[Rfam]
Nucleotides: 089
Base pairs, nucleotide, nucleotide: 001089002088003087004086005085006084008082009081010080011079012078013077014076016074017073018072019071020070021069022068023067024066027063028062029061
Number, partner (000 for none) and nucleotide at each position: 001089a002088u003087a004086u005085g006084c007000c008082u009081g010080g011079c012078u013077c014076c015000c016074u017073g018072u019071a020070u021069g022068c023067c024066a025000u026000u027063u028062g029061u030000a031000g032000a033000g034000c035000g036000c037000u038000c039000a040000c041000c042000g043000u044000c045000a046000u047000a048000c049000c050000c051000g052000a053000u054000g055000g056000c057000c058000u059000c060000c061029g062028c063027g064000c065000a066024u067023g068022g069021c070020g071019u072018a073017u074016g075000a076014g077013g078012a079011g080010c081009c082008a083000a084006g085005c086004a087003u088002a089001u

mir-160 microRNA precursor family: an 89-nucleotide RNA from Cucumis sativus. Taxonomically the source falls in Cucumis (Eukaryota, Tracheophyta, Mesangiospermae, rosids). Rfam links the family to the GO terms RISC complex and miRNA-mediated post-transcriptional gene silencing.